Rfam assigns this 185-nucleotide RNA from Bordetella trematum to the family "6S / SsrS RNA". A search with the family's covariance model found it, with a score of 76 bits. On this family, see Wassarman and Storz, Cell 2000: "6S RNA regulates E. coli RNA polymerase activity".
[Rfam]
RNA sequence: UUGUCCCUGCGGUGUUCGUGACAUGGCCAUACAGUCUCUGAACCGAUGCCUUUGGCAUACUGGUUGCGGGAGUGCAGGGCUGGAGUGAUCGUCACAUAGCUGACGAACCCGAUGCUCUUCGGAUCGCGACCACCUUGAACCUAUGGGUUCGAGAUGCCGGCCUAGACGGCACAUGCGGGGCAUUU
Dot-bracket structure: ....(((((((((((.(((..............((((.((((((.................(((.((((...((.(((((....((..(((((........))))))).....))))).))..)))).)))..............))))))))))..........))))))).))))))).....